Shown here is a 98-nucleotide sequence from Deinococcus ruber, a member of the family "TPP riboswitch aptamer (THI element)". About the family: Vitamin B(1) in its active form thiamin pyrophosphate (TPP) is an essential coenzyme that is synthesised by coupling of pyrimidine and thiazole moieties in bacteria. A search with the family's covariance model found it, with a score of 59 bits. The base pairs follow the family's consensus structure, which is taken from published work. Taxonomically the source falls in Deinococcus (Bacteria, Deinococcota, Deinococci, Deinococcaceae).
RNA sequence: CUGCGUCACCGGGGGUGCCUGCCAGAAGCGGGCUGAGAACAUACCCCAGGAACCUGAACCGGGUCAUUCCGGCGGAGGGAGCGUGGCCGCCGCACAGA
Numbered sequence: 001c002u003g004c005g006u007c008a009c010c011g012g013g014g015g016u017g018c019c020u021g022c023c024a025g026a027a028g029c030g031g032g033c034u035g036a037g038a039a040c041a042u043a044c045c046c047c048a049g050g051a052a053c054c055u056g057a058a059c060c061g062g063g064u065c066a067u068u069c070c071g072g073c074g075g076a077g078g079g080a081g082c083g084u085g086g087c088c089g090c091c092g093c094a095c096a097g098a
Stems, first nucleotide, its partner, number of pairs: 006086004011047004016041001017033005053078003059072004